[Rfam]
RNA sequence: AGCUGUCUUCGGGGCGGGGUGAGAUUCCCCACCGGCGGUAAUCCGGCUCAGAGCCGGCGAGCCCGCGAGCAUAUGCAGAUUUUGGUGAGAUCCCAAAGCCGACGGUACAGUCCGGAUGAAAGAAGACCUGC
Numbered sequence: 001a002g003c004u005g006u007c008u009u010c011g012g013g014g015c016g017g018g019g020u021g022a023g024a025u026u027c028c029c030c031a032c033c034g035g036c037g038g039u040a041a042u043c044c045g046g047c048u049c050a051g052a053g054c055c056g057g058c059g060a061g062c063c064c065g066c067g068a069g070c071a072u073a074u075g076c077a078g079a080u081u082u083u084g085g086u087g088a089g090a091u092c093c094c095a096a097a098g099c100c101g102a103c104g105g106u107a108c109a110g111u112c113c114g115g116a117u118g119a120a121a122g123a124a125g126a127c128c129u130g131c
Base pairs, nucleotide, nucleotide: 005127006126007125008124009123010122017029018028019027031111032110033101034100035066036065037064038063061099062098069076070075081097082096083095084094085093103114104113105112
Rfam assigns this 131-nucleotide RNA sequence from Ruminococcaceae bacterium BL-6 to the family "FMN riboswitch aptamer (RFN element)". The organism belongs to Oscillospiraceae, within Bacteria. The family's consensus secondary structure is taken from published work.